[Rfam]
MIR5269 microRNA precursor family: an 80-nucleotide RNA from Medicago truncatula. NCBI's taxonomy places the organism under Eukaryota, Pentapetalae, Fabales, Trifolieae, Medicago.
RNA sequence: UUGGGUGAAAUCAAUGUAGGACCUGCACUUUGGAAAUGGAAUCCACAUAAAAUGGUGGGACAUACAUUAAUUUCACCCAA
Number, nucleotide and partner (000 for none) at each position: 001u080002u079003g078004g077005g076006u075007g074008a073009a072010a071011u070012c000013a068014a067015u066016g065017u064018a063019g000020g000021a000022c000023c058024u057025g056026c054027a053028c000029u051030u050031u049032g048033g000034a000035a000036a000037u000038g000039g000040a000041a000042u000043c000044c000045a000046c000047a000048u032049a031050a030051a029052a000053u027054g026055g000056u025057g024058g023059g000060a000061c000062a000063u018064a017065c016066a015067u014068u013069a000070a011071u010072u009073u008074c007075a006076c005077c004078c003079a002080a001